[Rfam]
RNA: Bacterial RNase P class A
RNA sequence: UGAGUUGGCUGGGCGGCCGCGGAUCGUCGCAAGACGAGUCGAGGAAAGUCCGGACUUCGAAGAGCAGGGUGAUUGCUAACAGCAAUCCGAGGUGACUCGCGGGACAGUGCCACAGAAAACAGACCGCCACCACUCAGCUUUCGGGCCGGUGGGUGGUAAGGGUGAAACGGUGCGGUAAGAGCGCACCAGCAUUCCGGGUGACCGGAGUGGCUCGGCAAACCCCACCCGAAGCAAGGCCAAGAAGGCCGCACCUGGUGCGGCCGCGCCGGCGUUUGAGGGCUGCUCGCCCGAGCCGGCGGGUAGGCCGCUCGAGGCACCCGGCAACGGUGUGUCCAGAUGGAUGGUCGCCGCCGCGCUGCCGUGAUCACUCGCGGCGGUGCGGAACAGAAUCCGGCUUACAGGCCAACUCAUCCG
Numbered sequence: 001u002g003a004g005u006u007g008g009c010u011g012g013g014c015g016g017c018c019g020c021g022g023a024u025c026g027u028c029g030c031a032a033g034a035c036g037a038g039u040c041g042a043g044g045a046a047a048g049u050c051c052g053g054a055c056u057u058c059g060a061a062g063a064g065c066a067g068g069g070u071g072a073u074u075g076c077u078a079a080c081a082g083c084a085a086u087c088c089g090a091g092g093u094g095a096c097u098c099g100c101g102g103g104a105c106a107g108u109g110c111c112a113c114a115g116a117a118a119a120c121a122g123a124c125c126g127c128c129a130c131c132a133c134u135c136a137g138c139u140u141u142c143g144g145g146c147c148g149g150u151g152g153g154u155g156g157u158a159a160g161g162g163u164g165a166a167a168c169g170g171u172g173c174g175g176u177a178a179g180a181g182c183g184c185a186c187c188a189g190c191a192u193u194c195c196g197g198g199u200g201a202c203c204g205g206a207g208u209g210g211c212u213c214g215g216c217a218a219a220c221c222c223c224a225c226c227c228g229a230a231g232c233a234a235g236g237c238c239a240a241g242a243a244g245g246c247c248g249c250a251c252c253u254g255g256u257g258c259g260g261c262c263g264c265g266c267c268g269g270c271g272u273u274u275g276a277g278g279g280c281u282g283c284u285c286g287c288c289c290g291a292g293c294c295g296g297c298g299g300g301u302a303g304g305c306c307g308c309u310c311g312a313g314g315c316a317c318c319c320g321g322c323a324a325c326g327g328u329g330u331g332u333c334c335a336g337a338u339g340g341a342u343g344g345u346c347g348c349c350g351c352c353g354c355g356c357u358g359c360c361g362u363g364a365u366c367a368c369u370c371g372c373g374g375c376g377g378u379g380c381g382g383a384a385c386a387g388a389a390u391c392c393g394g395c396u397u398a399c400a401g402g403c404c405a406a407c408u409c410a411u412c413c414g
Stems, first nucleotide, its partner, number of pairs: 001410010011399001012349007020041003024037005046397003050394005055231004062285004067227005072086005087101001088099004102222002107220002109216003124161002126157006134149001169187006189211001190209008235306004245297004277289004313333005318327003
Dot-bracket structure: ((((((((((((((((((.(((.(((((....))))).)))....[[[.[[[[[((((...[[[[.((((((((((.....)))))(((((....)))).)((...(((((............((((((((..(..............)..))))))..)).......((((((.......)))))).(((((((((....)))))))).)..)))..)))))))))))))...((((......((((............................((((.]]]]))))....)))).....))))......((((((((....))).))))).........)))))))........................................]]]]]]]].).))))))))))....